This 120-nucleotide RNA from Heyndrickxia sporothermodurans belongs to the Rfam family "ylbH leader". The source organism's lineage runs through Bacteria, Bacillati, Bacillota, Bacilli and Heyndrickxia. The match comes from Rfam's covariance-model search (111 bits). This family is a putative regulatory RNA structure that is found upstream of the ylbH gene in B. subtilis and related low GC Gram-positive bacteria. The base pairs follow the family's consensus structure.
RNA sequence: AUAAAAAACCCUGCAAAAAAUCUGCAGGGUCCUUCUAUAUCCUAUGUAAAAGGACAGAAGGCAAAGGGAGAGGAGAAACCGGAGGAAGAACUUAUGGGGAAACGUAAGUCUUCUCCGCGG
Numbered sequence: 001a002u003a004a005a006a007a008a009c010c011c012u013g014c015a016a017a018a019a020a021u022c023u024g025c026a027g028g029g030u031c032c033u034u035c036u037a038u039a040u041c042c043u044a045u046g047u048a049a050a051a052g053g054a055c056a057g058a059a060g061g062c063a064a065a066g067g068g069a070g071a072g073g074a075g076a077a078a079c080c081g082g083a084g085g086a087a088g089a090a091c092u093u094a095u096g097g098g099g100a101a102a103c104g105u106a107a108g109u110c111u112u113c114u115c116c117g118c119g120g
Stems, first nucleotide, its partner, number of pairs: 009029007017021001030068005040054004080117004085113004090109005